Rfam assigns this 341-nucleotide RNA sequence from Waltiozyma pijperi to the family "Nuclear RNase P". Its family is annotated with tRNA processing, ribonuclease P activity and ribonuclease P complex in the Gene Ontology. It is annotated as a ribozyme.
[Rfam]
RNA sequence: UCCCAGGGGGCGUCUAUGCUUACCUGCAUUCAAAAGUAGAUUGCAUGAAGAUCUAACAAAAGCAGGUGGGAAAUUCGGUGGUUUACACCGUCCAAACUUUUAAAUUUCUCUUGAGAGAUUCCCGACAUGGAAAUGUUUGGGUGAAGUCAUAAGAAAUUCCUUCCUGACUCUGGAACUUUACGGUUCCUGGUGUUUGGAAAUGGGAGACUUCACGGACGGUUGGCCCGGGUCACUUCGGGAGACUCGGGCUGUUCAGUGCAAUACAUAGACCGCGACCUUUGGAAAGCGCAAAGCUCCAGAUAGAUAGUCGCGGAACCCGAUACCGAUCAUGCGUCUUGGGA
Numbered sequence: 001u002c003c004c005a006g007g008g009g010g011c012g013u014c015u016a017u018g019c020u021u022a023c024c025u026g027c028a029u030u031c032a033a034a035a036g037u038a039g040a041u042u043g044c045a046u047g048a049a050g051a052u053c054u055a056a057c058a059a060a061a062g063c064a065g066g067u068g069g070g071a072a073a074u075u076c077g078g079u080g081g082u083u084u085a086c087a088c089c090g091u092c093c094a095a096a097c098u099u100u101u102a103a104a105u106u107u108c109u110c111u112u113g114a115g116a117g118a119u120u121c122c123c124g125a126c127a128u129g130g131a132a133a134u135g136u137u138u139g140g141g142u143g144a145a146g147u148c149a150u151a152a153g154a155a156a157u158u159c160c161u162u163c164c165u166g167a168c169u170c171u172g173g174a175a176c177u178u179u180a181c182g183g184u185u186c187c188u189g190g191u192g193u194u195u196g197g198a199a200a201u202g203g204g205a206g207a208c209u210u211c212a213c214g215g216a217c218g219g220u221u222g223g224c225c226c227g228g229g230u231c232a233c234u235u236c237g238g239g240a241g242a243c244u245c246g247g248g249c250u251g252u253u254c255a256g257u258g259c260a261a262u263a264c265a266u267a268g269a270c271c272g273c274g275a276c277c278u279u280u281g282g283a284a285a286g287c288g289c290a291a292a293g294c295u296c297c298a299g300a301u302a303g304a305u306a307g308u309c310g311c312g313g314a315a316c317c318c319g320a321u322a323c324c325g326a327u328c329a330u331g332c333g334u335c336u337u338g339g340g341a
Base pairs, nucleotide, nucleotide: 001341002340003339004338009335010334011333015268020263022067023066024065025064026063037055038054039053040052041051042049076325077324078323079322080321090217091216092215093214107118108117109116110115124137125136126135127134128133141213142212143211144210145209146208147207161199162198163197270313271312272311273310274309275308276307